A member of the RNA family "Small nucleolar RNA SNORA84" from Oryctolagus cuniculus, 133 nucleotides long. Lineage of the source: Eukaryota > Teleostomi > Tetrapoda > Euarchontoglires > Oryctolagus. Rfam classes the family as an H/ACA-box small nucleolar RNA. The literature on the family includes a 2002 paper in Curr Biol by Marker et al., "Experimental RNomics: identification of 140 candidates for small non-messenger RNAs in the plant Arabidopsis thaliana".
[Rfam]
RNA sequence: GCCCUGUGGUUGCUGGAGGCUGUUGUGCAAGUACAGCUCUCUAGUGGAUGCAAUGGGCCAGAGCAAUCCUGUGAUUUUUGCAUGGCGGCUGUUUCUCUUCAGCAGCCGCCAUAGCCCGGUCACUGGAACAUGG
Numbered sequence: 001g002c003c004c005u006g007u008g009g010u011u012g013c014u015g016g017a018g019g020c021u022g023u024u025g026u027g028c029a030a031g032u033a034c035a036g037c038u039c040u041c042u043a044g045u046g047g048a049u050g051c052a053a054u055g056g057g058c059c060a061g062a063g064c065a066a067u068c069c070u071g072u073g074a075u076u077u078u079u080g081c082a083u084g085g086c087g088g089c090u091g092u093u094u095c096u097c098u099u100c101a102g103c104a105g106c107c108g109c110c111a112u113a114g115c116c117c118g119g120u121c122a123c124u125g126g127a128a129c130a131u132g133g
Stems, first nucleotide, its partner, number of pairs: 001058004007050002010047008019037005069125001071123006080115002082112004087107007
Pairs were carried over by alignment from the consensus structure, which was predicted with WAR.